[Rfam]
RNA: Selenocysteine insertion sequence 1
RNA sequence: UAUUUAUUUAUGACGGUUACAGCUGAAACCUAUGGCUGCUGUAGCCAGAUGUACCAAAAUA
Numbered sequence: 001u002a003u004u005u006a007u008u009u010a011u012g013a014c015g016g017u018u019a020c021a022g023c024u025g026a027a028a029c030c031u032a033u034g035g036c037u038g039c040u041g042u043a044g045c046c047a048g049a050u051g052u053a054c055c056a057a058a059a060u061a
Stems, first nucleotide, its partner, number of pairs: 001061005015046009030035001